[Rfam]
RNA: Fluoride riboswitch aptamer (crcB RNA motif)
RNA sequence: UCCGCCCACGGAGAUGGCAUUCCUCCUUUAACCGCCUGGCCUUUUCCCUGGCCGGCUGAUGAUGCCUACGGCAGU
Numbered sequence: 001u002c003c004g005c006c007c008a009c010g011g012a013g014a015u016g017g018c019a020u021u022c023c024u025c026c027u028u029u030a031a032c033c034g035c036c037u038g039g040c041c042u043u044u045u046c047c048c049u050g051g052c053c054g055g056c057u058g059a060u061g062a063u064g065c066c067u068a069c070g071g072c073a074g075u
Stems, first nucleotide, its partner, number of pairs: 010026004016066006034056003